[Rfam]
RNA sequence: CGAACAAACGGAGGCGCAACCAAGAAGAGUAAUCUAUCUAUCGCCCGGGUAGGCUUGGGAUAGAUGAAAGGCGAGGUUGCCGAAGGGUACAGGACUUACCCAUCCUGUAUGCCUGGUUAUAUGGGGAAUACCCAUGUAACUGUCGCAUUUGAGAAAAUGCGGAGAGCCGUUUGGAAU
Numbered sequence: 001c002g003a004a005c006a007a008a009c010g011g012a013g014g015c016g017c018a019a020c021c022a023a024g025a026a027g028a029g030u031a032a033u034c035u036a037u038c039u040a041u042c043g044c045c046c047g048g049g050u051a052g053g054c055u056u057g058g059g060a061u062a063g064a065u066g067a068a069a070g071g072c073g074a075g076g077u078u079g080c081c082g083a084a085g086g087g088u089a090c091a092g093g094a095c096u097u098a099c100c101c102a103u104c105c106u107g108u109a110u111g112c113c114u115g116g117u118u119a120u121a122u123g124g125g126g127a128a129u130a131c132c133c134a135u136g137u138a139a140c141u142g143u144c145g146c147a148u149u150u151g152a153g154a155a156a157a158u159g160c161g162g163a164g165a166g167c168c169g170u171u172u173g174g175a176a177u
Base pairs, nucleotide, nucleotide: 006172007171008170009169010168011167016080017079018078019077020076021075024072032065033064034063035062036061037060038059039058084114085113086112087110088109089108090107091106092105093104094103115141116140117139118138119137120136121135122134123133124132125131143162144161145160146159147158148157149156